Background:
A member of the RNA family "Small nucleolar RNA Z103" from Chenopodium quinoa, 94 nucleotides long. Rfam classes the family as a C/D-box small nucleolar RNA. It scores 96 bits against the family's covariance model. The organism belongs to Chenopodium, within Eukaryota.
[Rfam]
RNA sequence: AUGGAUGUGAUGAUUAUUUCCCCAGAUGAUCGAAGUUGAUUAAACUGUGCUAAUUAUAUUCUCUUUUGAGAAUCAAGCCAAAAUCCUGAUCCAU
Numbered sequence: 001a002u003g004g005a006u007g008u009g010a011u012g013a014u015u016a017u018u019u020c021c022c023c024a025g026a027u028g029a030u031c032g033a034a035g036u037u038g039a040u041u042a043a044a045c046u047g048u049g050c051u052a053a054u055u056a057u058a059u060u061c062u063c064u065u066u067u068g069a070g071a072a073u074c075a076a077g078c079c080a081a082a083a084u085c086c087u088g089a090u091c092c093a094u
Stems, first nucleotide, its partner, number of pairs: 001094005